RNA sequence: UGGUCAGGGGGCCGGGAGGCUGGGGGGAGCAGUGGAGCCGCAGCCACCCAGGGGUACAGGGAGUACCUCCGCAGAGGGCCGGGCCAGGUGAAAA
Numbered sequence: 001u002g003g004u005c006a007g008g009g010g011g012c013c014g015g016g017a018g019g020c021u022g023g024g025g026g027g028a029g030c031a032g033u034g035g036a037g038c039c040g041c042a043g044c045c046a047c048c049c050a051g052g053g054g055u056a057c058a059g060g061g062a063g064u065a066c067c068u069c070c071g072c073a074g075a076g077g078g079c080c081g082g083g084c085c086a087g088g089u090g091a092a093a094a
Base pairs, nucleotide, nucleotide: 001086002085003084004083005082010080011079012078013077014049015048016047018045020043021042022041024039025038051069052068053067054066055065056064057063